Source information: This 269-nucleotide RNA from Cohnella zeiphila belongs to the Rfam family "glmS glucosamine-6-phosphate activated ribozyme aptamer". It is annotated as a riboswitch.
[Rfam]
RNA sequence: GAAGCCACAUAAGCGCCAGAACUUGGCGGCCAUUCGUUGGCGGGAUCGGACGUUAAAGGACCGAGCGAUCGGGGAACCGGAACGGGUAAAAGGGUUCCAGGACGCUCACCUUGCAGACGACGGCGAUCACGGCUUGAACUGGAGUCAAGUUGACGAGGUGGAGGUGUUCGGAUUGUUCGGCGGGGACCUCCCGGCCCGCAUCGGGGCCGACAGCCGGAAGACAAAUCGCUCAGGGCGACCGGGCGGACAAUAUUCCGGUACGAUGAAUA
Number, nucleotide and partner (000 for none) at each position: 001g000002a000003a000004g000005c000006c000007a000008c000009a000010u000011a000012a000013g000014c000015g000016c000017c000018a000019g000020a151021a150022c149023u148024u147025g146026g145027c144028g000029g000030c000031c000032a000033u000034u000035c000036g000037u000038u000039g000040g000041c000042g000043g000044g000045a000046u000047c000048g000049g000050a000051c000052g000053u000054u000055a000056a000057a000058g000059g000060a000061c000062c000063g000064a000065g000066c000067g000068a000069u000070c000071g000072g000073g000074g000075a000076a000077c000078c000079g000080g000081a000082a000083c000084g000085g000086g000087u000088a000089a000090a000091a000092g000093g000094g000095u000096u000097c000098c000099a000100g000101g000102a000103c000104g000105c000106u000107c000108a000109c000110c000111u000112u000113g000114c000115a000116g000117a000118c000119g000120a000121c000122g000123g000124c000125g000126a000127u000128c000129a000130c000131g000132g000133c000134u000135u000136g000137a000138a000139c000140u000141g000142g000143a000144g027145u026146c025147a024148a023149g022150u021151u020152g000153a000154c000155g000156a000157g000158g000159u000160g191161g190162a189163g188164g187165u000166g000167u000168u180169c179170g178171g177172a000173u000174u000175g000176u000177u171178c170179g169180g168181c000182g000183g000184g000185g000186a000187c164188c163189u162190c161191c160192c209193g208194g207195c206196c205197c204198g000199c000200a000201u000202c000203g000204g197205g196206g195207c194208c193209g192210a000211c000212a000213g259214c258215c257216g256217g255218a254219a253220g000221a000222c000223a000224a000225a000226u000227c245228g244229c243230u242231c241232a000233g240234g239235g000236c000237g000238a000239c234240c233241g231242g230243g229244c228245g227246g000247a000248c000249a000250a000251u000252a000253u219254u218255c217256c216257g215258g214259u213260a000261c000262g000263a000264u000265g000266a000267a000268u000269a000
This entry contains a glucosamine-6-phosphate activated ribozyme that is found in the mRNA for GlmS. GlmS is an enzyme that uses fructose-6-phosphate and glutamine to generate glucosamine-6-phosphate.